[Rfam]
RNA sequence: CACAUGCUCCCUUAGAUCCACCUUUGUGGUUGUUUAACUUGUUCUGAGUUCUGCUGCUUCACUUUCAGUAGUUCCAGUUCAGUGACAAUCAGCAACUUUCUUGGUUGUACAGUCAAAGGUGCUUGAGUCAUUGGCAUGUAAGAGUAAUAUACCUUCACAUUGGCCAGUUAUGUUCUAAUGGCAGCGGGCACAGUUCUUCUGUGUCCGUUUAUCACCAGUAGGAUACGGCUAAUGCGUGGACAAG
Numbered sequence: 001c002a003c004a005u006g007c008u009c010c011c012u013u014a015g016a017u018c019c020a021c022c023u024u025u026g027u028g029g030u031u032g033u034u035u036a037a038c039u040u041g042u043u044c045u046g047a048g049u050u051c052u053g054c055u056g057c058u059u060c061a062c063u064u065u066c067a068g069u070a071g072u073u074c075c076a077g078u079u080c081a082g083u084g085a086c087a088a089u090c091a092g093c094a095a096c097u098u099u100c101u102u103g104g105u106u107g108u109a110c111a112g113u114c115a116a117a118g119g120u121g122c123u124u125g126a127g128u129c130a131u132u133g134g135c136a137u138g139u140a141a142g143a144g145u146a147a148u149a150u151a152c153c154u155u156c157a158c159a160u161u162g163g164c165c166a167g168u169u170a171u172g173u174u175c176u177a178a179u180g181g182c183a184g185c186g187g188g189c190a191c192a193g194u195u196c197u198u199c200u201g202u203g204u205c206c207g208u209u210u211a212u213c214a215c216c217a218g219u220a221g222g223a224u225a226c227g228g229c230u231a232a233u234g235c236g237u238g239g240a241c242a243a244g
Stems, first nucleotide, its partner, number of pairs: 002139007011127005019121008027091006037083003044077003048074001051071006092108006153239002156236001160232001162230004174222004179217003186213002190210001193205001195203001

This 244-nucleotide sequence from Eleutherodactylus coqui belongs to the Rfam family "Small nucleolar RNA SNORA53". The snoRNA ACA53 belongs to the H/ACA family of pseudouridylation guide snoRNAs. The source organism's lineage runs through Eukaryota, Eumetazoa, Gnathostomata, Amphibia and Eleutherodactylus. It scores 163 bits against the family's covariance model. Rfam classes the family as an H/ACA-box small nucleolar RNA.